RNA sequence: GCCCUGUGGUUGCUGGAUGCUGUUGUGUAUGUGCAGCUCUCCGGUGGAUACGAUGGGCCAUAGCAAUCCUGUGAUUUAUGCAUGGAGGCUGCUUCUCCUCAGCGGCCGCCAUAGCCCGGUCACUGGAACAUGG
Numbered sequence: 001g002c003c004c005u006g007u008g009g010u011u012g013c014u015g016g017a018u019g020c021u022g023u024u025g026u027g028u029a030u031g032u033g034c035a036g037c038u039c040u041c042c043g044g045u046g047g048a049u050a051c052g053a054u055g056g057g058c059c060a061u062a063g064c065a066a067u068c069c070u071g072u073g074a075u076u077u078a079u080g081c082a083u084g085g086a087g088g089c090u091g092c093u094u095c096u097c098c099u100c101a102g103c104g105g106c107c108g109c110c111a112u113a114g115c116c117c118g119g120u121c122a123c124u125g126g127a128a129c130a131u132g133g
Base pairs, nucleotide, nucleotide: 001058002057003056004055007050008049010047011046012045013044014043015042016041017040019037020036021035022034023033069125071123072122073121074120075119076118080115081114082112083111084110085109087107088106089105090104091103092102093101
Small nucleolar RNA SNORA84: a 133-nucleotide sequence from Cebus imitator. It scores 140 bits against the family's covariance model. The literature on the family includes a 2002 paper in Curr Biol by Marker et al., "Experimental RNomics: identification of 140 candidates for small non-messenger RNAs in the plant Arabidopsis thaliana". Its family is annotated with RNA processing and nucleolus in the Gene Ontology. The family has 28 seed sequences and 757 matches in Rfam 15.1. The family's consensus secondary structure was predicted with WAR. By type it is an H/ACA-box small nucleolar RNA.